[Rfam]
RNA sequence: CCCGGUCCUCGGUAGUGGCCUUCAGCAGCGCCGGCGCGAGCCGCCGCGGCUGCGGGCCUCGAUCGAAGACCGGC
Numbered sequence: 001c002c003c004g005g006u007c008c009u010c011g012g013u014a015g016u017g018g019c020c021u022u023c024a025g026c027a028g029c030g031c032c033g034g035c036g037c038g039a040g041c042c043g044c045c046g047c048g049g050c051u052g053c054g055g056g057c058c059u060c061g062a063u064c065g066a067a068g069a070c071c072g073g074c
Stems, first nucleotide, its partner, number of pairs: 002073006009066005017058005023052004029048002